A member of the RNA family "ffh sRNA" from Oceanibaculum indicum, 52 nucleotides long. Rfam classes the family as a small RNA. The family's consensus secondary structure is taken from published work. The organism belongs to Oceanibaculum indicum, within Bacteria.
RNA sequence: CUGUCCGGGGGGCACCGUCCGUCCGCGAGUUUCGCGCACGGGCGCAUUUUCG
Numbered sequence: 001c002u003g004u005c006c007g008g009g010g011g012g013c014a015c016c017g018u019c020c021g022u023c024c025g026c027g028a029g030u031u032u033c034g035c036g037c038a039c040g041g042g043c044g045c046a047u048u049u050u051c052g
Stems, first nucleotide, its partner, number of pairs: 016044007025035004